[Rfam]
RNA sequence: GGGGAUGUGGCACAGCGGCAACUGCGGCGGACUGUAAAUCCGCUCCCUAUGGGUUCCUUGGUUCGAGUCCAAGCAUCCCCA
Numbered sequence: 001g002g003g004g005a006u007g008u009g010g011c012a013c014a015g016c017g018g019c020a021a022c023u024g025c026g027g028c029g030g031a032c033u034g035u036a037a038a039u040c041c042g043c044u045c046c047c048u049a050u051g052g053g054u055u056c057c058u059u060g061g062u063u064c065g066a067g068u069c070c071a072a073g074c075a076u077c078c079c080c081a
Stems, first nucleotide, its partner, number of pairs: 001080007010025003027043005057073005
The family of this 81-nucleotide sequence from a Coriobacteriaceae bacterium is "tRNA".
From the family's description: Transfer RNA (tRNA) molecules are approximately 80 nucleotides in length.
Gene Ontology term of the family: triplet codon-amino acid adaptor activity.